[Rfam]
RNA: Mammalian CPEB3 ribozyme
RNA sequence: AGUCGCAACUUCAAGGCCAUGGCAGAAGCACUCAACGUGCAGCCUGGUCAGUUUCCAACGAAUUUGUGAAUUCUGCU
Numbered sequence: 001a002g003u004c005g006c007a008a009c010u011u012c013a014a015g016g017c018c019a020u021g022g023c024a025g026a027a028g029c030a031c032u033c034a035a036c037g038u039g040c041a042g043c044c045u046g047g048u049c050a051g052u053u054u055c056c057a058a059c060g061a062a063u064u065u066g067u068g069a070a071u072u073c074u075g076c077u
Base pairs, nucleotide, nucleotide: 014045015044016043017042021077022076023075024074025073026072027071028040029039030038049066050065051064053062054061055060